[Rfam]
The record is a 131-nucleotide sequence from Jaculus jaculus, which matches "Small nucleolar RNA SNORA33" in Rfam.
The base pairs follow the family's consensus structure, which was predicted with PFOLD.
Rfam 15.1 lists 1,176 matches to the family in 522 species.
RNA sequence: UAGCCAGCCAAUUAAUUUGCUUAUGUGAAGGUAUUUCUGCAGAAAGUUAGAAACAACUGGCAAUAGUGAUGCCACUUUAUGAGCCUUAAGGACAACUGAGGUUACUACUGUCCCUCAAAAUGGCUACGAUA
Numbered sequence: 001u002a003g004c005c006a007g008c009c010a011a012u013u014a015a016u017u018u019g020c021u022u023a024u025g026u027g028a029a030g031g032u033a034u035u036u037c038u039g040c041a042g043a044a045a046g047u048u049a050g051a052a053a054c055a056a057c058u059g060g061c062a063a064u065a066g067u068g069a070u071g072c073c074a075c076u077u078u079a080u081g082a083g084c085c086u087u088a089a090g091g092a093c094a095a096c097u098g099a100g101g102u103u104a105c106u107a108c109u110g111u112c113c114c115u116c117a118a119a120a121u122g123g124c125u126a127c128g129a130u131a
Stems, first nucleotide, its partner, number of pairs: 003061005016043005071124004083111002087107002091103003
ACA33 is a member of the H/ACA class of snoRNA that guide the sites of modification of uridines to pseudouridines.